[Rfam]
RNA sequence: UACCUUCUGUCGUGUAUCCACGAUUGAUGCAGCCUCAGAUGCUUGA
Numbered sequence: 001u002a003c004c005u006u007c008u009g010u011c012g013u014g015u016a017u018c019c020a021c022g023a024u025u026g027a028u029g030c031a032g033c034c035u036c037a038g039a040u041g042c043u044u045g046a
Stems, first nucleotide, its partner, number of pairs: 009024004031043003
Dot-bracket structure: ........((((........))))......(((.......)))...